[Rfam]
RNA sequence: CCAUUUGAAGUGAGUGUUAGAAGGAACUGAACCAUCCAUGAGAAGGGAAAAGAAAGUGACGGUUCAGUUUCCUUUAAUAUCUCAUCUUGAAUGG
Numbered sequence: 001c002c003a004u005u006u007g008a009a010g011u012g013a014g015u016g017u018u019a020g021a022a023g024g025a026a027c028u029g030a031a032c033c034a035u036c037c038a039u040g041a042g043a044a045g046g047g048a049a050a051a052g053a054a055a056g057u058g059a060c061g062g063u064u065c066a067g068u069u070u071c072c073u074u075u076a077a078u079a080u081c082u083c084a085u086c087u088u089g090a091a092u093g094g
Base pairs, nucleotide, nucleotide: 004091005090006089007088008087011084012083013082014081016078017077018076019075020074021073023071024070025069026068027067028066029065030064032062033061
RNA: MIR2275 microRNA precursor family